This 92-nucleotide RNA sequence from Genlisea aurea belongs to the Rfam family "Small nucleolar RNA Z107/R87". It scores 52 bits against the family's covariance model. The family's consensus secondary structure was predicted with RNAfold. Rfam links the family to the GO terms RNA processing and nucleolus. The literature on the family includes a 2003 paper in Nucleic Acids Res by Chen et al., "The high diversity of snoRNAs in plants: identification and comparative study of 120 snoRNA genes from Oryza sativa".
RNA sequence: GAUCCGCUGUGACGACUUUGAAAAGAUCAAGCUCAACAGACCGUAUUGCAGGUUUUUACAUGCAUGUCGAUCAUCUUCAUCACCGAGCGAUC
Number, nucleotide and partner (000 for none) at each position: 001g092002a091003u090004c000005c089006g088007c087008u000009g000010u000011g000012a000013c000014g000015a000016c000017u000018u000019u000020g000021a000022a000023a000024a000025g000026a000027u000028c000029a000030a000031g000032c000033u000034c000035a000036a000037c000038a000039g000040a000041c000042c000043g000044u000045a000046u000047u000048g000049c000050a000051g000052g000053u000054u000055u000056u000057u000058a000059c000060a000061u000062g000063c000064a000065u000066g000067u000068c000069g000070a000071u000072c000073a000074u000075c000076u000077u000078c000079a000080u000081c000082a000083c000084c000085g000086a000087g007088c006089g005090a003091u002092c001